[Rfam]
RNA: mir-205 microRNA precursor family
RNA sequence: UGCUGUUGUCCUUCAUUCCACCGGAUCCUGAGUAAAUAUAAUCCAGAUUCCCAGUGGCAUGAAGCCCAGUAGCUG
Numbered sequence: 001u002g003c004u005g006u007u008g009u010c011c012u013u014c015a016u017u018c019c020a021c022c023g024g025a026u027c028c029u030g031a032g033u034a035a036a037u038a039u040a041a042u043c044c045a046g047a048u049u050c051c052c053a054g055u056g057g058c059a060u061g062a063a064g065c066c067c068a069g070u071a072g073c074u075g
Stems, first nucleotide, its partner, number of pairs: 011064006019056003023051003028046003